[Rfam]
RNA sequence: AAUACAUAUUGGCAAACUUAUCGAAAGGUAAGGACGCAAAGCUAUGGAUCUAAAGAUAAAUUAUCUAUGAUUGCCAGGUUGCUGUU
Dot-bracket structure: ...........((...((((((....))))))...))..((((.((((((....((((...))))...)))..)))))))......
Numbered sequence: 001a002a003u004a005c006a007u008a009u010u011g012g013c014a015a016a017c018u019u020a021u022c023g024a025a026a027g028g029u030a031a032g033g034a035c036g037c038a039a040a041g042c043u044a045u046g047g048a049u050c051u052a053a054a055g056a057u058a059a060a061u062u063a064u065c066u067a068u069g070a071u072u073g074c075c076a077g078g079u080u081g082c083u084g085u086u
Stems, first nucleotide, its partner, number of pairs: 012037002017032006040080004045076003048071003055065004